[Rfam]
RNA sequence: UGUUUGAUUUGAUGAGUCACAAGCAUGGUACCUGAGUAAGUUGGAUCUUGGAAAAGGUCAACUUCCUUGUUUAUUAAUCCUAAAUUGAUCAUAAACUCUGAGCAAACA
Numbered sequence: 001u002g003u004u005u006g007a008u009u010u011g012a013u014g015a016g017u018c019a020c021a022a023g024c025a026u027g028g029u030a031c032c033u034g035a036g037u038a039a040g041u042u043g044g045a046u047c048u049u050g051g052a053a054a055a056g057g058u059c060a061a062c063u064u065c066c067u068u069g070u071u072u073a074u075u076a077a078u079c080c081u082a083a084a085u086u087g088a089u090c091a092u093a094a095a096c097u098c099u100g101a102g103c104a105a106a107c108a
Stems, first nucleotide, its partner, number of pairs: 001108006036066001038064004
A member of the RNA family "Small nucleolar RNA Z118/Z121/Z120" from Triticum turgidum, 108 nucleotides long.
By type it is a C/D-box small nucleolar RNA.
The base pairs follow the family's consensus structure, which was predicted with PFOLD.
On this family, see Chen et al., Nucleic Acids Res 2003: "The high diversity of snoRNAs in plants: identification and comparative study of 120 snoRNA genes from Oryza sativa".
The source organism's lineage runs through Eukaryota, Viridiplantae, commelinids, Triticinae and Triticum turgidum.
Gene Ontology terms of the family: RNA processing and nucleolus.
Rfam 15.1 lists 435 matches to the family in 31 species.